[Rfam]
RNA sequence: UCCAAGGGGCCAUUCGCGAGCGCCCCGUGAGGCGGCAGCCCAAGCUUCGCGUCCUUCAUUGCCUUUUCGGCAGCGCCGGAAGGGCAGCCUCUUG
Numbered sequence: 001u002c003c004a005a006g007g008g009g010c011c012a013u014u015c016g017c018g019a020g021c022g023c024c025c026c027g028u029g030a031g032g033c034g035g036c037a038g039c040c041c042a043a044g045c046u047u048c049g050c051g052u053c054c055u056u057c058a059u060u061g062c063c064u065u066u067u068c069g070g071c072a073g074c075g076c077c078g079g080a081a082g083g084g085c086a087g088c089c090u091c092u093u094g
Stems, first nucleotide, its partner, number of pairs: 006026005049088002051085007
Rfam assigns this 94-nucleotide RNA from Stappia albiluteola to the family "chrB-a RNA". By type it is a cis-regulatory element. The family has 163 seed sequences and 347 matches in Rfam 15.1.